[Rfam]
RNA sequence: UCGGCUCAGGUCCGCCCUCUGCUAAAACUCCUGCGCGCAGGUCCGGUUCGCUCCGGGCCCGUCUCCCUUCGGUGAGAUGUCCCUGGCGCC
Numbered sequence: 001u002c003g004g005c006u007c008a009g010g011u012c013c014g015c016c017c018u019c020u021g022c023u024a025a026a027a028c029u030c031c032u033g034c035g036c037g038c039a040g041g042u043c044c045g046g047u048u049c050g051c052u053c054c055g056g057g058c059c060c061g062u063c064u065c066c067c068u069u070c071g072g073u074g075a076g077a078u079g080u081c082c083c084u085g086g087c088g089c090c
Base pairs, nucleotide, nucleotide: 003016004015005014035089036088037087038086040059041058042057043056044055045054046053060079061078062077063076064075065074

The record is a 90-nucleotide RNA from Synechococcus sp. SynAce01, which matches "ATPC RNA motif" in Rfam. The organism belongs to Synechococcus, within Bacteria. Pairs were carried over by alignment from the consensus structure, which is taken from published work. The family's RNA type in Rfam is non-coding RNA gene.